Source information
A member of the RNA family "tRNA" from Synechocystis sp. PCC 6803, 74 nucleotides long.
[Rfam]
RNA sequence: GGGCUUGUAGCUUAGUGGAUUAGAGCGCGUGGCUACGGACCACGAGGUCGGGGGUUCGAGUCCCUCCAAGCCCG
Numbered sequence: 001g002g003g004c005u006u007g008u009a010g011c012u013u014a015g016u017g018g019a020u021u022a023g024a025g026c027g028c029g030u031g032g033c034u035a036c037g038g039a040c041c042a043c044g045a046g047g048u049c050g051g052g053g054g055u056u057c058g059a060g061u062c063c064c065u066c067c068a069a070g071c072c073c074g
Stems, first nucleotide, its partner, number of pairs: 001073007010026004028044005050066005
Dot-bracket structure: (((((((..((((.........)))).(((((.......))))).....(((((.......)))))))))))).

The base pairs follow the family's consensus structure, which is taken from published work. Gene Ontology term of the family: triplet codon-amino acid adaptor activity. Transfer RNA (tRNA) molecules are approximately 80 nucleotides in length. Their secondary structure includes four short double-helical elements and three loops (D, anti-codon, and T loops). Further hydrogen bonds mediate the characteristic L-shaped molecular structure. tRNAs have two regions of fundamental functional importance: the anti-codon, which is responsible for specific mRNA codon recognition, and the 3' end, to which the tRNAs corresponding amino acid is attached (by aminoacyl-tRNA synthetases). tRNAs cope with the degeneracy of the genetic code in two manners: having more than one tRNA (with a specific anti-codon) for a particular amino acid; and 'wobble' base-pairing, i.e. permitting non-standard base-pairing at the 3rd anti-codon position.